[Rfam]
RNA sequence: AGGUAGAUGCACCCUGAUUCGACCUCCGGUCUCAGCUGGACCGGGGGUCAUUUUC
Numbered sequence: 001a002g003g004u005a006g007a008u009g010c011a012c013c014c015u016g017a018u019u020c021g022a023c024c025u026c027c028g029g030u031c032u033c034a035g036c037u038g039g040a041c042c043g044g045g046g047g048u049c050a051u052u053u054u055c
Stems, first nucleotide, its partner, number of pairs: 002013003023047009
Shown here is a 55-nucleotide RNA from Leptolyngbyaceae cyanobacterium M65_K2018_010, a member of the family "Nitrogen stress-induced RNA 1".
The base pairs follow the family's consensus structure.